Source information: The family of this 80-nucleotide sequence from Desulfosporosinus fructosivorans is "pan motif". A search with the family's covariance model found it, with a score of 41 bits. Taxonomically the source falls in Desulfosporosinus (Bacteria, Bacillati, Bacillota, Desulfitobacteriaceae). It is annotated as a cis-regulatory element.

RNA sequence: UGGCAGAUACAAAAAUCGAAUAGACCUUAAGUGAAUACAGAAAUAAUUGCCGCUUGGAUCUAAAUGACCGAGACGGAGGG
Numbered sequence: 001u002g003g004c005a006g007a008u009a010c011a012a013a014a015a016u017c018g019a020a021u022a023g024a025c026c027u028u029a030a031g032u033g034a035a036u037a038c039a040g041a042a043a044u045a046a047u048u049g050c051c052g053c054u055u056g057g058a059u060c061u062a063a064a065u066g067a068c069c070g071a072g073a074c075g076g077a078g079g080g
Base pairs, nucleotide, nucleotide: 002026003025004023006021008019010018050076051075052074053072054071055070056069057068059067060066